[Rfam]
RNA sequence: GUUGGUUAUGGGGACAUGCACCCAGUUACCAUAGGUGGCAAAAUCGUUGGGUCUUUGUGUGCAAUCGCUGGCGUUUUGACCAUCGCCUUACCAGUGCCAGUCAUAGUUUCAAAU
Numbered sequence: 001g002u003u004g005g006u007u008a009u010g011g012g013g014a015c016a017u018g019c020a021c022c023c024a025g026u027u028a029c030c031a032u033a034g035g036u037g038g039c040a041a042a043a044u045c046g047u048u049g050g051g052u053c054u055u056u057g058u059g060u061g062c063a064a065u066c067g068c069u070g071g072c073g074u075u076u077u078g079a080c081c082a083u084c085g086c087c088u089u090a091c092c093a094g095u096g097c098c099a100g101u102c103a104u105a106g107u108u109u110c111a112a113a114u
Base pairs, nucleotide, nucleotide: 001114002113005110008107009106011104013102014101015100018097019096020095021094037077038076040074050062
RNA: Potassium channel RNA editing signal